[Rfam]
Background:
This 93-nucleotide sequence from Chrysochloris asiatica belongs to the Rfam family "Small nucleolar RNA SNORD116". Rfam links the family to the GO terms RNA processing and nucleolus. A search with the family's covariance model found it, with a score of 74 bits. For this family Rfam cites "Identification of brain-specific and imprinted small nucleolar RNA genes exhibiting an unusual genomic organization" (Cavaille et al., Proc Natl Acad Sci U S A, 2000). It is annotated as a C/D-box small nucleolar RNA. The source organism's lineage runs through Eukaryota, Dipnotetrapodomorpha, Tetrapoda, Amniota and Chrysochloris.
RNA sequence: GAAUCGAUGAUGAUGUCUACAUAAACAUUCCUUGGGAAAGCUUGAAUAAAACGAAUGAAAAGUCACUACCUCUCACUUACUGAACUGAGGUUC
Numbered sequence: 001g002a003a004u005c006g007a008u009g010a011u012g013a014u015g016u017c018u019a020c021a022u023a024a025a026c027a028u029u030c031c032u033u034g035g036g037a038a039a040g041c042u043u044g045a046a047u048a049a050a051a052c053g054a055a056u057g058a059a060a061a062g063u064c065a066c067u068a069c070c071u072c073u074c075a076c077u078u079a080c081u082g083a084a085c086u087g088a089g090g091u092u093c
Base pairs, nucleotide, nucleotide: 001093002092003091004090005089026057027056028055029054030053032049033048034047